mir-932 microRNA precursor family: a 77-nucleotide sequence from Drosophila navojoa.
The base pairs follow the family's consensus structure, which was predicted with RNAalifold.

[Rfam]
RNA sequence: CGUAGCUUUCAAUUCCGUAGUGCAUUGCAGUUGAUUUAAGGAAUUACUGCAAGCGCUGCAGAAUUGGCAGCUCCGUU
Numbered sequence: 001c002g003u004a005g006c007u008u009u010c011a012a013u014u015c016c017g018u019a020g021u022g023c024a025u026u027g028c029a030g031u032u033g034a035u036u037u038a039a040g041g042a043a044u045u046a047c048u049g050c051a052a053g054c055g056c057u058g059c060a061g062a063a064u065u066g067g068c069a070g071c072u073c074c075g076u077u
Stems, first nucleotide, its partner, number of pairs: 006070002009067003014062002017059002021055003025052005